[Rfam]
RNA sequence: UUCGUUCAACUCUUAAUAAGAGUCGGAAGUAGGCAACUGCCGAAGGAACGCUUA
Dot-bracket structure: ..(((((.(((((.....)))))..[.....(((....)))....)))))]...
Shown here is a 54-nucleotide RNA, a member of the family "Glutamine riboswitch aptamer (glnA leader)". The sequence is in the family's curated seed alignment. Pairs were carried over by alignment from the consensus structure, which is taken from published work. For this family Rfam cites "Structural and Dynamic Basis for Low-Affinity, High-Selectivity Binding of L-Glutamine by the Glutamine Riboswitch" (Ren et al., Cell Rep, 2015).